[Rfam]
RNA sequence: AGACCUUGAUGUGGGCAUUUCCUUAAUAGCUCCUUGAACCUUUCCCAUGUCUCGUACAAUGAUUCCUCGUCUUCUUGAGAGUAGGUGUUAAUCUCGGUUAGGAGUUU
Number, nucleotide and partner (000 for none) at each position: 001a107002g000003a105004c104005c102006u101007u000008g000009a000010u000011g000012u000013g000014g000015g000016c000017a000018u000019u000020u000021c000022c000023u000024u000025a000026a000027u000028a000029g000030c000031u000032c000033c000034u000035u000036g000037a000038a000039c000040c000041u000042u000043u000044c000045c000046c000047a000048u000049g000050u000051c000052u000053c000054g000055u000056a000057c000058a073059a000060u000061g000062a000063u000064u000065c000066c000067u000068c000069g000070u000071c000072u000073u058074c000075u000076u000077g000078a000079g000080a000081g000082u000083a000084g000085g000086u000087g000088u000089u000090a000091a000092u000093c000094u000095c000096g000097g000098u000099u000100a000101g006102g005103a000104g004105u003106u000107u001
RNA: Plant small nucleolar RNA R71